[Rfam]
RNA sequence: UUUGGAUCAAUGAUGGUAUUUGUAAACUGCGUUAUCUUCCUAAAACUCCCAUUAUGGGGUUCAAGUUGAAACAAUUAUAACUGAGAUCCCAA
Numbered sequence: 001u002u003u004g005g006a007u008c009a010a011u012g013a014u015g016g017u018a019u020u021u022g023u024a025a026a027c028u029g030c031g032u033u034a035u036c037u038u039c040c041u042a043a044a045a046c047u048c049c050c051a052u053u054a055u056g057g058g059g060u061u062c063a064a065g066u067u068g069a070a071a072c073a074a075u076u077a078u079a080a081c082u083g084a085g086a087u088c089c090c091a092a
Stems, first nucleotide, its partner, number of pairs: 001092002004089004
RNA: Small nucleolar RNA snoR27
Organism: Kingdonia uniflora